A member of the RNA family "Ascomycota telomerase RNA" from Colletotrichum sublineola, 362 nucleotides of a longer RNA. The family has 4 seed sequences and 475 matches in Rfam 15.1. Taxonomically the source falls in Colletotrichum graminicola species complex (Eukaryota, Opisthokonta, Fungi, Sordariomycetes). Rfam links the family to the GO terms telomere maintenance via telomerase, telomerase catalytic core complex and telomerase activity. It scores 418 bits against the family's covariance model. A reference for the family is Qi et al. (2013), "The common ancestral core of vertebrate and fungal telomerase RNAs", Nucleic Acids Res. Pairs were carried over by alignment from the consensus structure.
[Rfam]
RNA sequence: AACCAAACAGAGCGAGCUUCUUGGUUGCUUUGGACUUACACAGAACUGGGCUUCGAUUCGCCGAACCUCGGAUGGCGAGAUAGAUGAUGGCUGUGCUGAGUGAGCGAAGGCGACUGACUCUGCGGAGGCCUUCGUGUCGGAGGCGGUGGGCGGCUGAACAAGUGCAAAGCGAUCCUGGGACCCAUCUCGUGUUGGAGUCAAAGUUUUGUGCUUGUCCGGGAUCGCCUAGGACAUGGUCUGCCAGUCACCCCUAACGGCUCGAGGUUUGCGCUCUUGUUGGAUCAAAAGGACAGGCCAUUGGAAGGUAGUCCUGGUUGUUGCCUCUCCAGAAAUGGCGAGACGGCAACCCCCUGUGGCUGGGG
Numbered sequence: 001a002a003c004c005a006a007a008c009a010g011a012g013c014g015a016g017c018u019u020c021u022u023g024g025u026u027g028c029u030u031u032g033g034a035c036u037u038a039c040a041c042a043g044a045a046c047u048g049g050g051c052u053u054c055g056a057u058u059c060g061c062c063g064a065a066c067c068u069c070g071g072a073u074g075g076c077g078a079g080a081u082a083g084a085u086g087a088u089g090g091c092u093g094u095g096c097u098g099a100g101u102g103a104g105c106g107a108a109g110g111c112g113a114c115u116g117a118c119u120c121u122g123c124g125g126a127g128g129c130c131u132u133c134g135u136g137u138c139g140g141a142g143g144c145g146g147u148g149g150g151c152g153g154c155u156g157a158a159c160a161a162g163u164g165c166a167a168a169g170c171g172a173u174c175c176u177g178g179g180a181c182c183c184a185u186c187u188c189g190u191g192u193u194g195g196a197g198u199c200a201a202a203g204u205u206u207u208g209u210g211c212u213u214g215u216c217c218g219g220g221a222u223c224g225c226c227u228a229g230g231a232c233a234u235g236g237u238c239u240g241c242c243a244g245u246c247a248c249c250c251c252u253a254a255c256g257g258c259u260c261g262a263g264g265u266u267u268g269c270g271c272u273c274u275u276g277u278u279g280g281a282u283c284a285a286a287a288g289g290a291c292a293g294g295c296c297a298u299u300g301g302a303a304g305g306u307a308g309u310c311c312u313g314g315u316u317g318u319u320g321c322c323u324c325u326c327c328a329g330a331a332a333u334g335g336c337g338a339g340a341c342g343g344c345a346a347c348c349c350c351c352u353g354u355g356g357c358u359g360g361g362g
Stems, first nucleotide, its partner, number of pairs: 179199003182195003201213004
Dot-bracket structure: ..................................................................................................................................................................................((((((........))).))).((((.....)))).....................................................................................................................................................